[Rfam]
RNA sequence: CACGAUCUGCGCUUCCCGACAGGACACUCAAUCCCCGGGGCCUUACUCGAUCCUUAGGGAGCUGUCCCUGUCCGGGCUCGUGGGCCUGGACACACGGCGCCCACCUACAUUGUAGGCAUCCCGGGAUCGUAAACGUUCAUCGGUCGCCGUGGAUCGUAC
Numbered sequence: 001c002a003c004g005a006u007c008u009g010c011g012c013u014u015c016c017c018g019a020c021a022g023g024a025c026a027c028u029c030a031a032u033c034c035c036c037g038g039g040g041c042c043u044u045a046c047u048c049g050a051u052c053c054u055u056a057g058g059g060a061g062c063u064g065u066c067c068c069u070g071u072c073c074g075g076g077c078u079c080g081u082g083g084g085c086c087u088g089g090a091c092a093c094a095c096g097g098c099g100c101c102c103a104c105c106u107a108c109a110u111u112g113u114a115g116g117c118a119u120c121c122c123g124g125g126a127u128c129g130u131a132a133a134c135g136u137u138c139a140u141c142g143g144u145c146g147c148c149g150u151g152g153a154u155c156g157u158a159c
Stems, first nucleotide, its partner, number of pairs: 002157010012146001015143001017142003032126004037121003040117003057102003061098005070091007

Overview: Rfam assigns this 159-nucleotide sequence from Pseudohoeflea suaedae to the family "6S / SsrS RNA". On this family, see Wassarman and Storz, Cell 2000: "6S RNA regulates E. coli RNA polymerase activity". Rfam classes the family as a non-coding RNA gene.